[Rfam]
nadA riboswitch: a 59-nucleotide sequence.
RNA sequence: GCUGCAACAUCCCCGUUGGCUGGGCGAGCGCGUACCGUCGCAGCGAGCCGACUGCAUGC
Numbered sequence: 001g002c003u004g005c006a007a008c009a010u011c012c013c014c015g016u017u018g019g020c021u022g023g024g025c026g027a028g029c030g031c032g033u034a035c036c037g038u039c040g041c042a043g044c045g046a047g048c049c050g051a052c053u054g055c056a057u058g059c
Stems, first nucleotide, its partner, number of pairs: 001059002003056004012045001013043001015052007022044001024041004030035001

The family's RNA type in Rfam is small RNA. For this family Rfam cites "Structure and ligand binding of the ADP-binding domain of the NAD(+) riboswitch" (Huang et al., RNA, 2020). The base pairs follow the family's consensus structure, which is taken from published work.